Record summary: Shown here is a 90-nucleotide sequence from Nyctereutes procyonoides, a member of the family "mir-8799 microRNA precursor family". Its Rfam clan is "mir-8791 microRNA precursor clan".
RNA sequence: GGGGGAGCGCCGCAUCCUGGGCCGUGGCCCCAGCGCCCAGGCUGUGGGGCCUGCACCGCUGGAAUCACACUCCUGGGACUGCAAACCCCC
Numbered sequence: 001g002g003g004g005g006a007g008c009g010c011c012g013c014a015u016c017c018u019g020g021g022c023c024g025u026g027g028c029c030c031c032a033g034c035g036c037c038c039a040g041g042c043u044g045u046g047g048g049g050c051c052u053g054c055a056c057c058g059c060u061g062g063a064a065u066c067a068c069a070c071u072c073c074u075g076g077g078a079c080u081g082c083a084a085a086c087c088c089c090c
Stems, first nucleotide, its partner, number of pairs: 001090005009082002013077001016076002019073003024068003029062002031058001033056001035054002040051004
The family's consensus secondary structure was predicted with RNAalifold. Its family is annotated with RISC complex and miRNA-mediated post-transcriptional gene silencing in the Gene Ontology.